Description
Rfam assigns this 81-nucleotide RNA from Crocuta crocuta to the family "Small nucleolar RNA SNORD115".
RNA sequence: GGGUCAAUGAUAAGAACUCAUAUGAUCAAGAAGAGAGAUGAUAACCUUAACAUCAUGCUCACUAGGAUUAUGUUGAGGCCC
Number, nucleotide and partner (000 for none) at each position: 001g081002g080003g079004u078005c075006a074007a000008u072009g071010a000011u000012a000013a000014g000015a000016a000017c000018u000019c000020a000021u000022a000023u000024g000025a000026u000027c000028a000029a000030g000031a000032a000033g000034a000035g000036a000037g000038a000039u000040g000041a000042u000043a000044a000045c000046c000047u000048u000049a000050a000051c000052a000053u000054c000055a000056u000057g000058c000059u000060c000061a000062c000063u000064a000065g000066g000067a000068u000069u000070a000071u009072g008073u000074u006075g005076a000077g000078g004079c003080c002081c001
The base pairs follow the family's consensus structure, which was predicted with PFOLD. On this family, see Cavaille et al., Proc Natl Acad Sci U S A 2000: "Identification of brain-specific and imprinted small nucleolar RNA genes exhibiting an unusual genomic organization". It is annotated as a C/D-box small nucleolar RNA.